Overview
The family of this 173-nucleotide sequence from Phenylobacterium kunshanense is "FMN riboswitch aptamer (RFN element)".
[Rfam]
RNA sequence: CUGCGUUCUCAGGGCGGGGUGCAACUCCCCACCGGCGGUAAUGCCCUCCGAAGCCUCGGCCAAGGAGGGACGAGUCCGCGGGCGCCUGGCUCCUCGUCAUAGGUGGGGCCAGGGACGAGCAGACCCGGUGCGAUCCCGGGACCGACGGUCAUAGUCCGGUUAUGAGAACGGUC
Numbered sequence: 001c002u003g004c005g006u007u008c009u010c011a012g013g014g015c016g017g018g019g020u021g022c023a024a025c026u027c028c029c030c031a032c033c034g035g036c037g038g039u040a041a042u043g044c045c046c047u048c049c050g051a052a053g054c055c056u057c058g059g060c061c062a063a064g065g066a067g068g069g070a071c072g073a074g075u076c077c078g079c080g081g082g083c084g085c086c087u088g089g090c091u092c093c094u095c096g097u098c099a100u101a102g103g104u105g106g107g108g109c110c111a112g113g114g115a116c117g118a119g120c121a122g123a124c125c126c127g128g129u130g131c132g133a134u135c136c137c138g139g140g141a142c143c144g145a146c147g148g149u150c151a152u153a154g155u156c157c158g159g160u161u162a163u164g165a166g167a168a169c170g171g172u173c
Stems, first nucleotide, its partner, number of pairs: 004170007017029003031155002033144002035079004074142002082120002124140005146158003
Source information: Taxonomically the source falls in Phenylobacterium (Bacteria, Pseudomonadati, Pseudomonadota, Caulobacterales).